[Rfam]
Nucleotides: 080
Base pairs, nucleotide, nucleotide: 008018009017010016011015039065040064041063042062043061044060045059046058047057048056049055
Number, partner (000 for none) and nucleotide at each position: 001000g002000g003000a004000a005000c006000g007000g008018g009017c010016c011015u012000u013000u014000c015011a016010g017009g018008c019000a020000u021000c022000c023000u024000c025000u026000c027000c028000c029000a030000a031000a032000a033000c034000u035000u036000u037000c038000c039065a040064g041063c042062c043061c044060g045059g046058u047057c048056g049055g050000c051000u052000u053000g054000u055049c056048c057047g058046a059045c060044c061043g062042g063041g064040c065039u066000u067000u068000u069000u070000c071000u072000u073000u074000g075000g076000g077000u078000g079000g080000u